Notes
A member of the RNA family "Small nucleolar RNA SNORD89" from Puma concolor, 110 nucleotides long. About the family: snoRNA HBII-289 belongs to the family of C/D snoRNAs. It is the human orthologue of the mouse MBII-289 and has no identified RNA target. The literature on the family includes a 2001 paper in EMBO J by Huttenhofer et al., "RNomics: an experimental approach that identifies 201 candidates for novel, small, non-messenger RNAs in mouse". The family's consensus secondary structure was predicted with RNAalifold. The organism belongs to Puma, within Eukaryota. The match comes from Rfam's covariance-model search (76 bits). Its family is annotated with RNA processing and nucleolus in the Gene Ontology.
RNA sequence: UCUGAGGAAUGAUUACAAUAAAAGGCCAAAUUGCAAUGCCUCUCCCAGCUGCUCUUUGUGGGUGCACGAUGAGAACAUCUUCAGAUGUGAACCAUUGGUCUGACCUCAGU
Numbered sequence: 001u002c003u004g005a006g007g008a009a010u011g012a013u014u015a016c017a018a019u020a021a022a023a024g025g026c027c028a029a030a031u032u033g034c035a036a037u038g039c040c041u042c043u044c045c046c047a048g049c050u051g052c053u054c055u056u057u058g059u060g061g062g063u064g065c066a067c068g069a070u071g072a073g074a075a076c077a078u079c080u081u082c083a084g085a086u087g088u089g090a091a092c093c094a095u096u097g098g099u100c101u102g103a104c105c106u107c108a109g110u
Stems, first nucleotide, its partner, number of pairs: 002109006015099002025034002035096004041090002043087001046084001048082001050064005068081002071078001